[Rfam]
RNA: Small nucleolar RNA SNORA72
Organism: Eleutherodactylus coqui
RNA sequence: GUGCGAAUAUAUUCUCGCCGGAUUGAUGUAUUAAUGAUCAGUUCCGGGCUAGACGUUCGCUAGAUCAACGCUGGUCCGUGUGAUUGGUACGAGCGCAUUAUGCAGUACUGAUUAUUAAAGGCCAGUUACACUU
Numbered sequence: 001g002u003g004c005g006a007a008u009a010u011a012u013u014c015u016c017g018c019c020g021g022a023u024u025g026a027u028g029u030a031u032u033a034a035u036g037a038u039c040a041g042u043u044c045c046g047g048g049c050u051a052g053a054c055g056u057u058c059g060c061u062a063g064a065u066c067a068a069c070g071c072u073g074g075u076c077c078g079u080g081u082g083a084u085u086g087g088u089a090c091g092a093g094c095g096c097a098u099u100a101u102g103c104a105g106u107a108c109u110g111a112u113u114a115u116u117a118a119a120g121g122c123c124a125g126u127u128a129c130a131c132u133u
Stems, first nucleotide, its partner, number of pairs: 003060003018047004022042006070126006084111007